[Rfam]
RNA sequence: UCAGGACAAGUAAAUACUACUCAUAUAAUUCUGAGAAUAUGGCUCAGAAGUUUCUACCAGACAACCGUAAAUUGUCUGACUAUGAGUGAAAGUGUACCUGAG
Dot-bracket structure: .................((((((((...(((((((.......)))))))........(((((((.......)))))))..))))))))..............
Numbered sequence: 001u002c003a004g005g006a007c008a009a010g011u012a013a014a015u016a017c018u019a020c021u022c023a024u025a026u027a028a029u030u031c032u033g034a035g036a037a038u039a040u041g042g043c044u045c046a047g048a049a050g051u052u053u054c055u056a057c058c059a060g061a062c063a064a065c066c067g068u069a070a071a072u073u074g075u076c077u078g079a080c081u082a083u084g085a086g087u088g089a090a091a092g093u094g095u096a097c098c099u100g101a102g
Stems, first nucleotide, its partner, number of pairs: 018088008029049007058078007